[Rfam]
RNA sequence: UGGUUGAGAGGAUCGCCCUCUGCGGUCCGCCAAGGCAUUCGUCCUUGCUCGGCCA
Numbered sequence: 001u002g003g004u005u006g007a008g009a010g011g012a013u014c015g016c017c018c019u020c021u022g023c024g025g026u027c028c029g030c031c032a033a034g035g036c037a038u039u040c041g042u043c044c045u046u047g048c049u050c051g052g053c054c055a
Stems, first nucleotide, its partner, number of pairs: 001055008010028007031047005
Dot-bracket structure: ((((((((.(((((((.....)))))))..(((((.......)))))))))))))